The record is a 128-nucleotide RNA sequence from Propionispora sp. 2/2-37, which matches "FMN riboswitch aptamer (RFN element)" in Rfam. A reference for the family is Vitreschak et al. (2002), "Regulation of riboflavin biosynthesis and transport genes in bacteria by transcriptional and translational attenuation", Nucleic Acids Res. NCBI's taxonomy places the organism under Bacteria, Negativicutes, Selenomonadales, Sporomusaceae, Propionispora. The RFN element is a highly conserved domain that is found frequently in the 5'-untranslated regions of prokaryotic mRNAs that encode for flavin mononucleotide (FMN) biosynthesis and transport proteins. This element is a metabolite-dependent riboswitch that directly binds FMN in the absence of proteins. In Bacillus subtilis, the riboswitch most likely controls gene expression by causing premature transcription termination within the 5' untranslated region of the ribDEAHT operon and precluding access to the ribosome-binding site of ypaA mRNA.The FMN riboswitch structure, reported in present an FMN-bound six-stem junction, adopts a butterfly-like scaffold, stapled together by opposingly directed but nearly identically folded peripheral domains. It scores 123 bits against the family's covariance model.
[Rfam]
RNA sequence: GAAUAUCUUCGGGGUAGGGUGAAAUUCCCGACCGGUGGUAAGCAGUGCUGCUGCAAGCCCACGAGCCGCAAGGCAGACUUGGUGCGAUUCCAAGGCCGACAGUACAGUCUGGAUGAAAGAAGAUAUGA
Number, nucleotide and partner (000 for none) at each position: 001g000002a000003a126004u125005a124006u123007c122008u121009u120010c119011g000012g000013g000014g000015u000016a000017g029018g028019g027020u000021g000022a000023a000024a000025u000026u000027c019028c018029c017030g000031a108032c107033c098034g097035g062036u061037g060038g059039u000040a000041a000042g000043c000044a000045g000046u000047g000048c000049u000050g000051c000052u000053g000054c000055a000056a000057g096058c095059c038060c037061a036062c035063g000064a000065g074066c073067c072068g000069c000070a000071a000072g067073g066074c065075a000076g000077a000078c094079u093080u092081g091082g090083u000084g000085c000086g000087a000088u000089u000090c082091c081092a080093a079094g078095g058096c057097c034098g033099a000100c111101a110102g109103u000104a000105c000106a000107g032108u031109c102110u101111g100112g000113a000114u000115g000116a000117a000118a000119g010120a009121a008122g007123a006124u005125a004126u003127g000128a000